[Rfam]
RNA sequence: GGGUGCAGUCACGCGACUGCAGGAUCGCGCUGGUCGGGCCGCCAGCG
Numbered sequence: 001g002g003g004u005g006c007a008g009u010c011a012c013g014c015g016a017c018u019g020c021a022g023g024a025u026c027g028c029g030c031u032g033g034u035c036g037g038g039c040c041g042c043c044a045g046c047g
Stems, first nucleotide, its partner, number of pairs: 005020006028047007
Description: Shown here is a 47-nucleotide RNA sequence from a Kofleriaceae bacterium, a member of the family "nhaA-I RNA". Rfam describes the family as follows. Acidobacteria, Alphaproteobacteria, Betaproteobacteria and Gammaproteobacteria, Verrucomicrobia, cand. division NC10. NCBI's taxonomy places the organism under Bacteria, Pseudomonadati, Polyangia, Haliangiales, Kofleriaceae. It is annotated as a riboswitch. A search with the family's covariance model found it, with a score of 49 bits.